Background
The family of this 123-nucleotide RNA from Mesorhizobium australicum is "Alphaproteobacterial ar14". It is annotated as a small RNA. Smr14C2 was renamed NfeR1 (Nodule Formation Efficiency RNA) highly expressed in salt stress and during the symbiotic interaction on legume roots. The organism belongs to Mesorhizobium australicum, within Bacteria.

RNA sequence: GGAAUUUCGCUGGGGUCGACCUCCUCCCCGACCCAAGCGAAUACGGUCCGCCCUUACCCUCCUCCCAAGGGCUGACCAUCAAAACGGCGCCCGCUGCACCUCCUCCCGCGGCGGGCGUUGUUU
Numbered sequence: 001g002g003a004a005u006u007u008c009g010c011u012g013g014g015g016u017c018g019a020c021c022u023c024c025u026c027c028c029c030g031a032c033c034c035a036a037g038c039g040a041a042u043a044c045g046g047u048c049c050g051c052c053c054u055u056a057c058c059c060u061c062c063u064c065c066c067a068a069g070g071g072c073u074g075a076c077c078a079u080c081a082a083a084a085c086g087g088c089g090c091c092c093g094c095u096g097c098a099c100c101u102c103c104u105c106c107c108g109c110g111g112c113g114g115g116c117g118u119u120g121u122u123u
Base pairs, nucleotide, nucleotide: 007040008039009038011036013034014033015032016031017030045077046076047075048074050072051071052070053069054068087118088117089116090115091114092113093112094111095110096109097108